[Rfam]
RNA: Mycobacterium smegmatis small RNA 1
Organism: Williamsia sp. Leaf354
RNA sequence: ACGGGAUCGACGAGCGGCAACGUCCACUUCGGAAGAGAAGGAGCGGACCCCCGAACGUCGUGACCCAGCACGGAUAUCGAGCACCCACGCGGAGCACGCCGCGACAGGCAGAAGUGUUGCGGGCCUGCGACAUCGCGAUCAGUGAGAACCACGACGACCCUUGGGUGGGCGUCGCGUAUCCUCGCAUCGCGGUCCAUCGCCGAGGCCACCCACGCAACCCACCGCGCACGCUUGGUAACCCGGAUCCGUGCUGACGGGCGGCCAGGAUGAUCCACCUCGGAUCACCCCGGCCGCCCGUAAUACUUU
Numbered sequence: 001a002c003g004g005g006a007u008c009g010a011c012g013a014g015c016g017g018c019a020a021c022g023u024c025c026a027c028u029u030c031g032g033a034a035g036a037g038a039a040g041g042a043g044c045g046g047a048c049c050c051c052c053g054a055a056c057g058u059c060g061u062g063a064c065c066c067a068g069c070a071c072g073g074a075u076a077u078c079g080a081g082c083a084c085c086c087a088c089g090c091g092g093a094g095c096a097c098g099c100c101g102c103g104a105c106a107g108g109c110a111g112a113a114g115u116g117u118u119g120c121g122g123g124c125c126u127g128c129g130a131c132a133u134c135g136c137g138a139u140c141a142g143u144g145a146g147a148a149c150c151a152c153g154a155c156g157a158c159c160c161u162u163g164g165g166u167g168g169g170c171g172u173c174g175c176g177u178a179u180c181c182u183c184g185c186a187u188c189g190c191g192g193u194c195c196a197u198c199g200c201c202g203a204g205g206c207c208a209c210c211c212a213c214g215c216a217a218c219c220c221a222c223c224g225c226g227c228a229c230g231c232u233u234g235g236u237a238a239c240c241c242g243g244a245u246c247c248g249u250g251c252u253g254a255c256g257g258g259c260g261g262c263c264a265g266g267a268u269g270a271u272c273c274a275c276c277u278c279g280g281a282u283c284a285c286c287c288c289g290g291c292c293g294c295c296c297g298u299a300a301u302a303c304u305u306u
Stems, first nucleotide, its partner, number of pairs: 003065002008060005016052002022048001025045001027043004066253009077242001079240001081239001085235003089231003094227002098109003116218006122207005127200004133192006142185003146180002150176001155174004160169002254298010266286001